[Rfam]
RNA: Mammalian CPEB3 ribozyme
RNA sequence: AGAGGUUGCAAGUUUGAGGCUAGAGUAGAAGCACUCGCUGCGCAGCCAUGUCAGAUUCCAACGAAUCUACAAAUUCUGCU
Numbered sequence: 001a002g003a004g005g006u007u008g009c010a011a012g013u014u015u016g017a018g019g020c021u022a023g024a025g026u027a028g029a030a031g032c033a034c035u036c037g038c039u040g041c042g043c044a045g046c047c048a049u050g051u052c053a054g055a056u057u058c059c060a061a062c063g064a065a066u067c068u069a070c071a072a073a074u075u076c077u078g079c080u
Stems, first nucleotide, its partner, number of pairs: 013048001018047004024080007031043002053068006